This 107-nucleotide RNA from Aerococcus christensenii belongs to the Rfam family "TPP riboswitch aptamer (THI element)".
Pairs were carried over by alignment from the consensus structure, which is taken from published work.
It scores 67 bits against the family's covariance model.
RNA sequence: UAGUGAUUACAGGGGAGCUUGUGUUGACAGGCUGAGAGGAAGUUUUUAACUUCGACCCUUUACCUGAUGCGGAUAAUGCCGCCGUAGGAAGCUAUGAUAAAGAUAUU
Numbered sequence: 001u002a003g004u005g006a007u008u009a010c011a012g013g014g015g016a017g018c019u020u021g022u023g024u025u026g027a028c029a030g031g032c033u034g035a036g037a038g039g040a041a042g043u044u045u046u047u048a049a050c051u052u053c054g055a056c057c058c059u060u061u062a063c064c065u066g067a068u069g070c071g072g073a074u075a076a077u078g079c080c081g082c083c084g085u086a087g088g089a090a091g092c093u094a095u096g097a098u099a100a101a102g103a104u105a106u107u
Stems, first nucleotide, its partner, number of pairs: 006095002010091001011059004017032005039053005063088004069082004